[Rfam]
Nucleotides: 068
Stems, first nucleotide, its partner, number of pairs: 001068004
Number, partner (000 for none) and nucleotide at each position: 001068g002067u003066g004065c005000g006000a007000u008000g009000a010000a011000a012000u013000a014000u015000c016000c017000u018000u019000a020000c021000c022000u023000a024000c025000a026000a027000a028000g029000a030000c031000c032000a033000a034000c035000c036000c037000c038000a039000u040000g041000g042000u043000u044000a045000a046000a047000g048000u049000u050000a051000u052000u053000c054000g055000u056000a057000c058000u059000g060000u061000c062000u063000g064000a065004g066003c067002a068001c
This 68-nucleotide sequence from Mesorhabditis spiculigera belongs to the Rfam family "Small nucleolar RNA sn2841".